[Rfam]
RNA: Makes More Granules Regulator RNA (mmgR)
RNA sequence: AGAAAGCGCCUUUCAGGCAUCCUCUCCUAAAACUUUCCGGGCUGGCCAUUUGGCCGGCCCUUUUUUUGUCGCCGC
Numbered sequence: 001a002g003a004a005a006g007c008g009c010c011u012u013u014c015a016g017g018c019a020u021c022c023u024c025u026c027c028u029a030a031a032a033c034u035u036u037c038c039g040g041g042c043u044g045g046c047c048a049u050u051u052g053g054c055c056g057g058c059c060c061u062u063u064u065u066u067u068g069u070c071g072c073c074g075c
Stems, first nucleotide, its partner, number of pairs: 008018004039060009